Rfam assigns this 85-nucleotide sequence from Clostridium sp. C105KSO13 to the family "S4-Clostridia ribosomal protein leader".
RNA sequence: GAAAGGGCAUACAUGAAUGUAUGUCUGGAUGUUCACCAGGAGGAAGGAAGCACCUUUCCGGAAGCUGAAGGACAUCCCAGUUAGG
Numbered sequence: 001g002a003a004a005g006g007g008c009a010u011a012c013a014u015g016a017a018u019g020u021a022u023g024u025c026u027g028g029a030u031g032u033u034c035a036c037c038a039g040g041a042g043g044a045a046g047g048a049a050g051c052a053c054c055u056u057u058c059c060g061g062a063a064g065c066u067g068a069a070g071g072a073c074a075u076c077c078c079a080g081u082u083a084g085g
Stems, first nucleotide, its partner, number of pairs: 005026008027077007

Notes: Its Rfam clan is "Ribosomal Protein S4 Leader clan". It scores 44 bits against the family's covariance model. The family's consensus secondary structure is taken from published work.